[Rfam]
RNA sequence: AGAACACACAUUAAUAUUCCCUAGGGCCAUGGGAUAAACGAAAACCCUACAAAAACAAGUCAGCAUACCCUAGAAUGGUUUAAGCAUGAUUACGAACCUAUGGCUUUGAUAACAGUUGAAGGAAAAAAUCU
Numbered sequence: 001a002g003a004a005c006a007c008a009c010a011u012u013a014a015u016a017u018u019c020c021c022u023a024g025g026g027c028c029a030u031g032g033g034a035u036a037a038a039c040g041a042a043a044a045c046c047c048u049a050c051a052a053a054a055a056c057a058a059g060u061c062a063g064c065a066u067a068c069c070c071u072a073g074a075a076u077g078g079u080u081u082a083a084g085c086a087u088g089a090u091u092a093c094g095a096a097c098c099u100a101u102g103g104c105u106u107u108g109a110u111a112a113c114a115g116u117u118g119a120a121g122g123a124a125a126a127a128a129u130c131u
Stems, first nucleotide, its partner, number of pairs: 009121001011119005022108012048086001053080002056077002060073001062071002
RNA: MIR845_2 microRNA precursor family
Organism: Vitis rotundifolia